[Rfam]
RNA sequence: AGAGCAUGACGAUCUAUUGUUAUUGGUCCGUGUUUCUGAUCCUUCGUGAAUGAGAAACCAUACCUAUAUUUCUGACUCU
Numbered sequence: 001a002g003a004g005c006a007u008g009a010c011g012a013u014c015u016a017u018u019g020u021u022a023u024u025g026g027u028c029c030g031u032g033u034u035u036c037u038g039a040u041c042c043u044u045c046g047u048g049a050a051u052g053a054g055a056a057a058c059c060a061u062a063c064c065u066a067u068a069u070u071u072c073u074g075a076c077u078c079u
Base pairs, nucleotide, nucleotide: 001079002078003077004076
The record is a 79-nucleotide RNA sequence from Zostera marina, which matches "Small nucleolar RNA SNORD18" in Rfam. It scores 41 bits against the family's covariance model. The family's RNA type in Rfam is C/D-box small nucleolar RNA. Rfam links the family to the GO terms nucleolus and RNA processing. A reference for the family is Prislei et al. (1993), "Two different snoRNAs are encoded in introns of amphibian and human L1 ribosomal protein genes", Nucleic Acids Res. Clan: SNORD18 clan.